RNA: SAM riboswitch aptamer (S box leader)
RNA sequence: CUUUCAUCAAGAGUGGCGGAGGGAACGGCCCUGUGAAGCCCGGCAACCAUAAUCGGCGCGGCUGAUUAGAAUGGUGCCAAAUCCGACGGUACCCAUCGUACCGGCAGAUGAGAG
Numbered sequence: 001c002u003u004u005c006a007u008c009a010a011g012a013g014u015g016g017c018g019g020a021g022g023g024a025a026c027g028g029c030c031c032u033g034u035g036a037a038g039c040c041c042g043g044c045a046a047c048c049a050u051a052a053u054c055g056g057c058g059c060g061g062c063u064g065a066u067u068a069g070a071a072u073g074g075u076g077c078c079a080a081a082u083c084c085g086a087c088g089g090u091a092c093c094c095a096u097c098g099u100a101c102c103g104g105c106a107g108a109u110g111a112g113a114g
Stems, first nucleotide, its partner, number of pairs: 001114008013041001015040003021031003026085003042078004047074002050069001052067001082106001087103006